[Rfam]
RNA sequence: UCGCUCCACGGCGAUGGAUUUCUGCCGGGCCACACGGCCAAACCGCCCAGAGGGCGGAUGAUUCCUACUCGGUU
Numbered sequence: 001u002c003g004c005u006c007c008a009c010g011g012c013g014a015u016g017g018a019u020u021u022c023u024g025c026c027g028g029g030c031c032a033c034a035c036g037g038c039c040a041a042a043c044c045g046c047c048c049a050g051a052g053g054g055c056g057g058a059u060g061a062u063u064c065c066u067a068c069u070c071g072g073u074u
Stems, first nucleotide, its partner, number of pairs: 010026004016065003020061002045055003